[Rfam]
Nucleotides: 094
Base pairs, nucleotide, nucleotide: 003092004091005090006089039051040050041049042048062079063078064077065076066075
Number, partner (000 for none) and nucleotide at each position: 001000u002000g003092u004091g005090g006089g007000g008000a009000u010000g011000a012000u013000g014000a015000u016000u017000a018000u019000c020000a021000g022000a023000g024000g025000c026000u027000g028000u029000u030000u031000c032000u033000g034000a035000g036000g037000a038000u039051g040050a041049g042048c043000c044000u045000a046000g047000a048042g049041c050040u051039c052000u053000c054000c055000c056000u057000a058000u059000g060000c061000u062079g063078c064077a065076a066075a067000a068000u069000a070000a071000c072000u073000g074000a075066u076065u077064u078063g079062c080000c081000u082000u083000u084000c085000u086000g087000a088000u089006c090005c091004c092003a093000a094000g
Source information:
This 94-nucleotide RNA from Brachypodium distachyon belongs to the Rfam family "Small nucleolar RNA Z119". NCBI's taxonomy places the organism under Eukaryota, Tracheophyta, commelinids, Pooideae, Brachypodium. The base pairs follow the family's consensus structure, which was predicted with PFOLD.